Rfam assigns this 236-nucleotide sequence from Actinokineospora bangkokensis to the family "Actinobacteria sRNA Ms_IGR-5". It scores 88 bits against the family's covariance model. It is annotated as a small RNA.

RNA sequence: ACACGAGAGAGGAGGUGGUCCACCAGUGAGUUCCGGUAGGACGCGUGAGGUGGCUGUCCGCUAAGGACCACCCAUCAACGAUGGACGCCGGCUCCGCCCACGGCAGACACCGGGUACCCGGUGCCGUAGGCGCGGCGCGUGGUCGGCGAAUACCAGGCAGUCACCCGGCCCCUGGGCUUCCGUGGUAGUCCGCCACGGGCCUCCCUCGCGGAGGAGUCGCCCAGGGGCUGUGCCCU
Numbered sequence: 001a002c003a004c005g006a007g008a009g010a011g012g013a014g015g016u017g018g019u020c021c022a023c024c025a026g027u028g029a030g031u032u033c034c035g036g037u038a039g040g041a042c043g044c045g046u047g048a049g050g051u052g053g054c055u056g057u058c059c060g061c062u063a064a065g066g067a068c069c070a071c072c073c074a075u076c077a078a079c080g081a082u083g084g085a086c087g088c089c090g091g092c093u094c095c096g097c098c099c100a101c102g103g104c105a106g107a108c109a110c111c112g113g114g115u116a117c118c119c120g121g122u123g124c125c126g127u128a129g130g131c132g133c134g135g136c137g138c139g140u141g142g143u144c145g146g147c148g149a150a151u152a153c154c155a156g157g158c159a160g161u162c163a164c165c166c167g168g169c170c171c172c173u174g175g176g177c178u179u180c181c182g183u184g185g186u187a188g189u190c191c192g193c194c195a196c197g198g199g200c201c202u203c204c205c206u207c208g209c210g211g212a213g214g215a216g217u218c219g220c221c222c223a224g225g226g227g228c229u230g231u232g233c234c235c236u
Stems, first nucleotide, its partner, number of pairs: 014058006059148004064143001068142004073137001166230012180198006